[Rfam]
RNA sequence: CAGUUUUUUUAGGUUUUGAUUUUUGUAAGCUGGAUGAGAAAAUCAAGACCUAAAGAAAUUC
Dot-bracket structure: ...(((((((((((((((((((((.............)))))))))))))))))))))...
Numbered sequence: 001c002a003g004u005u006u007u008u009u010u011a012g013g014u015u016u017u018g019a020u021u022u023u024u025g026u027a028a029g030c031u032g033g034a035u036g037a038g039a040a041a042a043u044c045a046a047g048a049c050c051u052a053a054a055g056a057a058a059u060u061c
Stems, first nucleotide, its partner, number of pairs: 004058021